The family of this 84-nucleotide RNA sequence from Ophiophagus hannah is "mir-425 microRNA precursor family". Pairs were carried over by alignment from the consensus structure, which was predicted with RNAalifold. A reference for the family is Poy et al. (2004), "A pancreatic islet-specific microRNA regulates insulin secretion", Nature.

[Rfam]
RNA sequence: AAAUUGCCAAGGAAUGACACGAUCACUCCCGCUGAGCGAGUGGACACAGAGCCACGGGGCUGUCGUGUCUGUCCUGAGCUUUUU
Numbered sequence: 001a002a003a004u005u006g007c008c009a010a011g012g013a014a015u016g017a018c019a020c021g022a023u024c025a026c027u028c029c030c031g032c033u034g035a036g037c038g039a040g041u042g043g044a045c046a047c048a049g050a051g052c053c054a055c056g057g058g059g060c061u062g063u064c065g066u067g068u069c070u071g072u073c074c075u076g077a078g079c080u081u082u083u084u
Stems, first nucleotide, its partner, number of pairs: 006079002010075003016069008027059005033054002036052002